[Rfam]
RNA sequence: AGGCGGCUUUAGCUCAGCGGUUCCUUCAGGUUCCUUCACAUCGAACUUUCAGUUUGCUUAACCACUCUUGUCCGCAAUGGUGGUUCAAGACCCGAGGGUGCUCUCAGCCCUUUA
Numbered sequence: 001a002g003g004c005g006g007c008u009u010u011a012g013c014u015c016a017g018c019g020g021u022u023c024c025u026u027c028a029g030g031u032u033c034c035u036u037c038a039c040a041u042c043g044a045a046c047u048u049u050c051a052g053u054u055u056g057c058u059u060a061a062c063c064a065c066u067c068u069u070g071u072c073c074g075c076a077a078u079g080g081u082g083g084u085u086c087a088a089g090a091c092c093c094g095a096g097g098g099u100g101c102u103c104u105c106a107g108c109c110c111u112u113u114a
Stems, first nucleotide, its partner, number of pairs: 002109003006105001012099004018094003025089002029085004